Shown here is an 80-nucleotide RNA sequence from Solanum lycopersicum, a member of the family "MIR5304 microRNA precursor family".
[Rfam]
RNA sequence: CAAUGCUACAUACUCAUCCCCACAACUUUCAUCUCACGUUCAAAAGAUGAAAGUUAUAGAGAUGAGUAUGGUGCAUUGGA
Numbered sequence: 001c002a003a004u005g006c007u008a009c010a011u012a013c014u015c016a017u018c019c020c021c022a023c024a025a026c027u028u029u030c031a032u033c034u035c036a037c038g039u040u041c042a043a044a045a046g047a048u049g050a051a052a053g054u055u056a057u058a059g060a061g062a063u064g065a066g067u068a069u070g071g072u073g074c075a076u077u078g079g080a
Stems, first nucleotide, its partner, number of pairs: 001078006009070010020059001022057001024055011

Description:
Pairs were carried over by alignment from the consensus structure, which was predicted with RNAalifold. It is one of the family's seed sequences. Rfam 15.1 lists 5 matches to the family in 3 species.